[Rfam]
RNA sequence: GUCUCCGCGAGGAGGGGUCUGGAGGAAGCCGGAGCGCAAAGCUAUGAGCCGACGAACAGAAACAGCAUAUAAGGCCGUCAUCCGGGCAAGUCAGCACAACAUGACGAAGUCCCAUGGAUUCAGGAGAAAUGGUAAAUGCUGCGGUUGUGUAGCGACAGUUCACGUU
Numbered sequence: 001g002u003c004u005c006c007g008c009g010a011g012g013a014g015g016g017g018u019c020u021g022g023a024g025g026a027a028g029c030c031g032g033a034g035c036g037c038a039a040a041g042c043u044a045u046g047a048g049c050c051g052a053c054g055a056a057c058a059g060a061a062a063c064a065g066c067a068u069a070u071a072a073g074g075c076c077g078u079c080a081u082c083c084g085g086g087c088a089a090g091u092c093a094g095c096a097c098a099a100c101a102u103g104a105c106g107a108a109g110u111c112c113c114a115u116g117g118a119u120u121c122a123g124g125a126g127a128a129a130u131g132g133u134a135a136a137u138g139c140u141g142c143g144g145u146u147g148u149g150u151a152g153c154g155a156c157a158g159u160u161c162a163c164g165u166u
Stems, first nucleotide, its partner, number of pairs: 002015005028166001030164002036159002041153006047146005063141006074133003078129001084112004090105004
RNA: Group II catalytic intron D1-D4-3
Organism: Geotalea daltonii